[Rfam]
The record is a 149-nucleotide sequence from Alistipes shahii, which matches "Group II catalytic intron D1-D4-7" in Rfam.
The sequence is in the family's curated seed alignment.
Pairs were carried over by alignment from the consensus structure.
The literature on the family includes a 2001 paper in Trends Genet by Bonen and Vogel, "The ins and outs of group II introns".

RNA sequence: CCCGUUGUUUCGUCAACGGUAGCCUAUGGACAGAUGCACCAAUAGUAAUAUACUGUAUCAAAGCUGUCCAGACAAGGUAGCCCUUCCGAAAGGAGCAGUCAGAACCGUGAGGGAAAGACAAUGGCUGUUAGUAUCAUACAGUCAGGGAG
Numbered sequence: 001c002c003c004g005u006u007g008u009u010u011c012g013u014c015a016a017c018g019g020u021a022g023c024c025u026a027u028g029g030a031c032a033g034a035u036g037c038a039c040c041a042a043u044a045g046u047a048a049u050a051u052a053c054u055g056u057a058u059c060a061a062a063g064c065u066g067u068c069c070a071g072a073c074a075a076g077g078u079a080g081c082c083c084u085u086c087c088g089a090a091a092g093g094a095g096c097a098g099u100c101a102g103a104a105c106c107g108u109g110a111g112g113g114a115a116a117g118a119c120a121a122u123g124g125c126u127g128u129u130a131g132u133a134u135c136a137u138a139c140a141g142u143c144a145g146g147g148a149g
Stems, first nucleotide, its partner, number of pairs: 002019006028069005033059006041051001043050002084095004098119003105112002124142005